The family of this 96-nucleotide sequence from Streptococcus oralis is "Streptococcus sRNA SpF44". Rfam classes the family as a small RNA.
RNA sequence: AUGUCAUCCUGUGAGGUGACGAAGGCGCAGAUUUAUAUAAAUUUUUAAAAGAUAGCUAUUUUUUAAAAAGUCUUACUCUGAGGGCCUAUUGCUGCA
Numbered sequence: 001a002u003g004u005c006a007u008c009c010u011g012u013g014a015g016g017u018g019a020c021g022a023a024g025g026c027g028c029a030g031a032u033u034u035a036u037a038u039a040a041a042u043u044u045u046u047a048a049a050a051g052a053u054a055g056c057u058a059u060u061u062u063u064u065a066a067a068a069a070g071u072c073u074u075a076c077u078c079u080g081a082g083g084g085c086c087u088a089u090u091g092c093u094g095c096a
Base pairs, nucleotide, nucleotide: 002021003020004019005018006017009016010015027095028094029093030092034088035087044068045067046065047064048063049062050061051060052059053058070085071084072083073082074081
Dot-bracket structure: .(((((..((....))))))).....((((...((........((((((((((....)))))))).)).(((((......))))).))...)))).